[Rfam]
RNA sequence: CAGCCUGAAGUGAUGAGUUUGUUUCAUGUCUCUUCUCUGAGAUUUUUCCUGGAGAUAGUAUUUCACUCUGAUUGGGCUC
Numbered sequence: 001c002a003g004c005c006u007g008a009a010g011u012g013a014u015g016a017g018u019u020u021g022u023u024u025c026a027u028g029u030c031u032c033u034u035c036u037c038u039g040a041g042a043u044u045u046u047u048c049c050u051g052g053a054g055a056u057a058g059u060a061u062u063u064c065a066c067u068c069u070g071a072u073u074g075g076g077c078u079c
Base pairs, nucleotide, nucleotide: 002078003077004076005075